[Rfam]
RNA sequence: GUGUCGUUCUAAGUAGUAGCGCCGCAGGUAAAUGAACUCAGUUUUACCUGUUCACUUCUGCUUAAACCGAAC
Numbered sequence: 001g002u003g004u005c006g007u008u009c010u011a012a013g014u015a016g017u018a019g020c021g022c023c024g025c026a027g028g029u030a031a032a033u034g035a036a037c038u039c040a041g042u043u044u045u046a047c048c049u050g051u052u053c054a055c056u057u058c059u060g061c062u063u064a065a066a067c068c069g070a071a072c
Base pairs, nucleotide, nucleotide: 001072002071004069006067007066010064011063012062013061014060015059016058018056019055024051025050026049027048028047029046030045
A member of the RNA family "mir-252 microRNA precursor family" from Steinernema carpocapsae, 72 nucleotides long. Lineage of the source: Eukaryota > Opisthokonta > Strongyloidoidea > Steinernematidae > Steinernema. Clan: mir-252 microRNA precursor family.